This 100-nucleotide sequence from Paenibacillus flagellatus belongs to the Rfam family "Purine riboswitch aptamer".
[Rfam]
RNA sequence: UGCAGUACCAUAAUCGUUGUUCGUAUAUCUCCGGAGAUAAGGUCCGGGGGUUUCUACAAGGAGCCGUAAAUUCCUGACUACGAGCGGGUCGAAGACUACC
Numbered sequence: 001u002g003c004a005g006u007a008c009c010a011u012a013a014u015c016g017u018u019g020u021u022c023g024u025a026u027a028u029c030u031c032c033g034g035a036g037a038u039a040a041g042g043u044c045c046g047g048g049g050g051u052u053u054c055u056a057c058a059a060g061g062a063g064c065c066g067u068a069a070a071u072u073c074c075u076g077a078c079u080a081c082g083a084g085c086g087g088g089u090c091g092a093a094g095a096c097u098a099c100c
Stems, first nucleotide, its partner, number of pairs: 018086008029049007059075005
Dot-bracket structure: .................((((((((...(((((((.......))))))).........(((((.......)))))...))))))))..............